Small nucleolar RNA SNORA32: a 117-nucleotide RNA sequence from Carlito syrichta. Rfam 15.1 lists 615 matches to the family in 234 species. It is annotated as an H/ACA-box small nucleolar RNA. NCBI's taxonomy places the organism under Eukaryota, Bilateria, Amniota, Eutheria, Carlito.
[Rfam]
RNA sequence: UGGUCAUUACCAAGGCUUUUAGAAUGAAGCUUCUUAUUUGCUGUGUACAUCACCAUACAAGAUUUUCCACUAGAUUUUCUAUCUGCCUUGUUAGCAGUCAGCCUAUUGGGAACUUUU
Number, nucleotide and partner (000 for none) at each position: 001u000002g000003g053004u052005c000006a050007u049008u000009a000010c000011c045012a044013a000014g000015g000016c000017u000018u000019u000020u000021a000022g000023a000024a000025u000026g041027a000028a039029g038030c000031u000032u000033c000034u000035u000036a000037u000038u029039u028040g000041c026042u000043g000044u012045g011046u000047a000048c000049a007050u006051c000052a004053c003054c000055a000056u000057a000058c000059a000060a000061g000062a000063u000064u000065u000066u110067c109068c108069a107070c000071u000072a000073g103074a000075u101076u100077u000078u000079c000080u000081a000082u000083c000084u096085g095086c094087c000088u000089u000090g000091u000092u000093a000094g086095c085096a084097g000098u000099c000100a076101g075102c000103c073104u000105a000106u000107u069108g068109g067110g066111a000112a000113c000114u000115u000116u000117u000